[Rfam]
RNA sequence: AUCUUCAUCUUACCUGGCAGCAUUGGAUGUCAUGACUCCCUCUAAUACUGCCUGGUAAUGAUGAUAGU
Numbered sequence: 001a002u003c004u005u006c007a008u009c010u011u012a013c014c015u016g017g018c019a020g021c022a023u024u025g026g027a028u029g030u031c032a033u034g035a036c037u038c039c040c041u042c043u044a045a046u047a048c049u050g051c052c053u054g055g056u057a058a059u060g061a062u063g064a065u066a067g068u
Base pairs, nucleotide, nucleotide: 002067005064006063007062008061009060010058011057012056013055014054016052017051018050019049020048022046023045024044025043026042027041
This 68-nucleotide RNA sequence from Scleropages formosus belongs to the Rfam family "mir-8/mir-141/mir-200 microRNA precursor family".
Clan: mir-8 microRNA precursor clan.